RNA sequence: UUUCCCUUUCUGUGCGUAUUACCGGAUAAUACGGCCCCGACUUGCCAUCGGGAUCCCAGGAGUGGUUAUGCUU
Numbered sequence: 001u002u003u004c005c006c007u008u009u010c011u012g013u014g015c016g017u018a019u020u021a022c023c024g025g026a027u028a029a030u031a032c033g034g035c036c037c038c039g040a041c042u043u044g045c046c047a048u049c050g051g052g053a054u055c056c057c058a059g060g061a062g063u064g065g066u067u068a069u070g071c072u073u
Stems, first nucleotide, its partner, number of pairs: 036052005
Dot-bracket structure: ...................................(((((.......))))).....................